[Rfam]
RNA sequence: CUCUGGAGAGUUCCUGCUAAACUGAGCAGUGCGGGACACCAAAGGGGAAGCUUCUGUAGAUUGCGAAGUCAUCUCUCAGGUUUAAAGGACAGAG
Number, nucleotide and partner (000 for none) at each position: 001c094002u093003c092004u091005g090006g000007a000008g000009a000010g000011u000012u036013c035014c034015u033016g032017c031018u000019a000020a000021a000022c000023u000024g000025a000026g000027c000028a000029g000030u000031g017032c016033g015034g014035g013036a012037c000038a081039c080040c079041a000042a076043a000044g000045g075046g074047g073048a000049a000050g000051c068052u067053u066054c065055u000056g000057u000058a000059g000060a000061u000062u000063g000064c000065g054066a053067a052068g051069u000070c000071a000072u000073c047074u046075c045076u042077c000078a000079g040080g039081u038082u000083u000084a000085a000086a000087g000088g000089a000090c005091a004092g003093a002094g001
Overview:
Rfam assigns this 94-nucleotide RNA sequence from Desulforamulus aquiferis to the family "Glycine riboswitch aptamer". The organism belongs to Desulforamulus, within Bacteria.